Shown here is an 87-nucleotide sequence from Cnephaeus nilssonii, a member of the family "mir-9195 microRNA precursor family". Pairs were carried over by alignment from the consensus structure, which was predicted with RNAalifold.
RNA sequence: AGAGGCCCUCAGCGGCUGGGGUGGAACGCUUGCCUCGUUGCCAUGGCGACAAAGCAAGCAUUCUUCUAGGCCGCUCAUGCUGCCUGC
Numbered sequence: 001a002g003a004g005g006c007c008c009u010c011a012g013c014g015g016c017u018g019g020g021g022u023g024g025a026a027c028g029c030u031u032g033c034c035u036c037g038u039u040g041c042c043a044u045g046g047c048g049a050c051a052a053a054g055c056a057a058g059c060a061u062u063c064u065u066c067u068a069g070g071c072c073g074c075u076c077a078u079g080c081u082g083c084c085u086g087c
Stems, first nucleotide, its partner, number of pairs: 004084003012074006020067002023064004028059006037050005

Rfam links the family to the GO terms miRNA-mediated post-transcriptional gene silencing and RISC complex.